A member of the RNA family "Small nucleolar RNA SNORA71" from Caloenas nicobarica, 131 nucleotides long. Rfam classes the family as an H/ACA-box small nucleolar RNA. It scores 107 bits against the family's covariance model. On this family, see Ganot et al., Genes Dev 1997: "The family of box ACA small nucleolar RNAs is defined by an evolutionarily conserved secondary structure and ubiquitous sequence elements essential for RNA accumulation". Rfam links the family to the GO terms nucleolus and RNA processing.
RNA sequence: ACCUGCAUUCGAAAGUGAUCGCGGUCUGGCCUGUGACCUGGUCAUUGAUAGUGCAGGGAGAGGAACGGCGAGAGCUUUCCCGUGUUUGGGGGGGUCCGACCCUGCCCCCCAGACCCUGUCGCUGUCGGACA
Numbered sequence: 001a002c003c004u005g006c007a008u009u010c011g012a013a014a015g016u017g018a019u020c021g022c023g024g025u026c027u028g029g030c031c032u033g034u035g036a037c038c039u040g041g042u043c044a045u046u047g048a049u050a051g052u053g054c055a056g057g058g059a060g061a062g063g064a065a066c067g068g069c070g071a072g073a074g075c076u077u078u079c080c081c082g083u084g085u086u087u088g089g090g091g092g093g094g095u096c097c098g099a100c101c102c103u104g105c106c107c108c109c110c111a112g113a114c115c116c117u118g119u120c121g122c123u124g125u126c127g128g129a130c131a
Base pairs, nucleotide, nucleotide: 002057003056004055005054006053007052008051009050014046015045016044017043018042019041020040021039023038024037025036026035069127070126071125073123074122075121084114085113086112087111088110089109090108091107092106093105